[Rfam]
RNA sequence: GGUACGGGCCGUGACUGGCGCUGAGGUGGAGCACCACCGGGGAGCGGCCGCAGAGAACACCGGCAGUCCAUGGGGCUGCCGGAGCCGUGCGCCUGGGCGACCGAC
Numbered sequence: 001g002g003u004a005c006g007g008g009c010c011g012u013g014a015c016u017g018g019c020g021c022u023g024a025g026g027u028g029g030a031g032c033a034c035c036a037c038c039g040g041g042g043a044g045c046g047g048c049c050g051c052a053g054a055g056a057a058c059a060c061c062g063g064c065a066g067u068c069c070a071u072g073g074g075g076c077u078g079c080c081g082g083a084g085c086c087g088u089g090c091g092c093c094u095g096g097g098c099g100a101c102c103g104a105c
Stems, first nucleotide, its partner, number of pairs: 003053001007049006015041002017093005026037004084098003
RNA: ZMP/ZTP riboswitch aptamer (pfl RNA motif)
Organism: Streptomyces sp. CB02488